The family of this 134-nucleotide sequence from Oncorhynchus mykiss is "Small nucleolar RNA SNORA57".
Gene Ontology terms of the family: RNA processing and nucleolus.
NCBI's taxonomy places the organism under Eukaryota, Bilateria, Craniata, Clupeocephala, Oncorhynchus.
Rfam describes the family as follows. U99 belongs to the H/ACA class of snoRNAs which are thought to guide the sites of modification of uridines to pseudouridines, the target for this family is unknown.
Pairs were carried over by alignment from the consensus structure, which was predicted with PFOLD.
The match comes from Rfam's covariance-model search (55 bits).
RNA sequence: CCUCCAUUCUUGGCAUGCAUGCUGUUCCUUUGUACUCGUGUGUAUGUGUUAUGGAGGUAGAACAAGUCCAGUGCCAUGGCUUCGGUGGCAAUGUUCCCUGUCUUCUGGUUCUAUCCUCAGGCGCUGGGGCGUUC
Numbered sequence: 001c002c003u004c005c006a007u008u009c010u011u012g013g014c015a016u017g018c019a020u021g022c023u024g025u026u027c028c029u030u031u032g033u034a035c036u037c038g039u040g041u042g043u044a045u046g047u048g049u050u051a052u053g054g055a056g057g058u059a060g061a062a063c064a065a066g067u068c069c070a071g072u073g074c075c076a077u078g079g080c081u082u083c084g085g086u087g088g089c090a091a092u093g094u095u096c097c098c099u100g101u102c103u104u105c106u107g108g109u110u111c112u113a114u115c116c117u118c119a120g121g122c123g124c125u126g127g128g129g130c131g132u133u134c
Stems, first nucleotide, its partner, number of pairs: 001057005015043005021037001024035002069126006089107002091104001093102001